[Rfam]
RNA: Small nucleolar RNA Z157/R69/R10
Organism: Paspalum vaginatum
RNA sequence: AUUGGAGCGCUGAUGAGUAACUUUUGUGGACUAGAGUUUCUGAUGCUACCUUGGUGGUAUUUGACGACCAAACCCUUGGCUGUCUGAGCUCCCAA
Numbered sequence: 001a002u003u004g005g006a007g008c009g010c011u012g013a014u015g016a017g018u019a020a021c022u023u024u025u026g027u028g029g030a031c032u033a034g035a036g037u038u039u040c041u042g043a044u045g046c047u048a049c050c051u052u053g054g055u056g057g058u059a060u061u062u063g064a065c066g067a068c069c070a071a072a073c074c075c076u077u078g079g080c081u082g083u084c085u086g087a088g089c090u091c092c093c094a095a
Base pairs, nucleotide, nucleotide: 002094004092005091006090007089008088037066039064040063044059045058046057047056048055049054